RNA sequence: GUUGAUAUGAGGAUCCUUUCCCCAGAUGAUCGACUGUGAUUAAACUGUGCGCAAUUUUGAUGCCUUAUCUUCUGUGGAGGUUCCAAUCCAGAAAUCUCAUCCAU
Numbered sequence: 001g002u003u004g005a006u007a008u009g010a011g012g013a014u015c016c017u018u019u020c021c022c023c024a025g026a027u028g029a030u031c032g033a034c035u036g037u038g039a040u041u042a043a044a045c046u047g048u049g050c051g052c053a054a055u056u057u058u059g060a061u062g063c064c065u066u067a068u069c070u071u072c073u074g075u076g077g078a079g080g081u082u083c084c085a086a087u088c089c090a091g092a093a094a095u096c097u098c099a100u101c102c103a104u
Base pairs, nucleotide, nucleotide: 001104002103004101005100
Dot-bracket structure: ((.((..............................................................................................)).))
Rfam assigns this 104-nucleotide RNA sequence from Setaria italica to the family "Small nucleolar RNA Z103". The match comes from Rfam's covariance-model search (79 bits). Rfam classes the family as a C/D-box small nucleolar RNA. NCBI's taxonomy places the organism under Eukaryota, Embryophyta, Tracheophyta, Cenchrinae, Setaria.